[Rfam]
RNA sequence: CGACGAGUGACGCAGUACGGGCAGGAGUGGGGGACCCACUUUUUCCGCGGCCGGCCGGCCGCUUGGGGUGAAGCCGCCUGAGGGCGGCCGGGCACCUUCCUCGCCCGAACCCGACAGCUCACCUCACAGGCGUGGGAAGGAACCA
Numbered sequence: 001c002g003a004c005g006a007g008u009g010a011c012g013c014a015g016u017a018c019g020g021g022c023a024g025g026a027g028u029g030g031g032g033g034a035c036c037c038a039c040u041u042u043u044u045c046c047g048c049g050g051c052c053g054g055c056c057g058g059c060c061g062c063u064u065g066g067g068g069u070g071a072a073g074c075c076g077c078c079u080g081a082g083g084g085c086g087g088c089c090g091g092g093c094a095c096c097u098u099c100c101u102c103g104c105c106c107g108a109a110c111c112c113g114a115c116a117g118c119u120c121a122c123c124u125c126a127c128a129g130g131c132g133u134g135g136g137a138a139g140g141a142a143c144c145a
Base pairs, nucleotide, nucleotide: 001024027127028126029125030124031123032122037065038064066112067111068110074087075086076085077084090106091105092104093103
Dot-bracket structure: (......................)..((((((....((.........................))(((.....((((......))))..((((.........))))...))).........))))))..................
A member of the RNA family "c-di-AMP riboswitch aptamer (ydaO/yuaA leader)" from Nocardioides soli, 145 nucleotides long. Lineage of the source: Bacteria > Actinomycetota > Propionibacteriales > Nocardioidaceae > Nocardioides.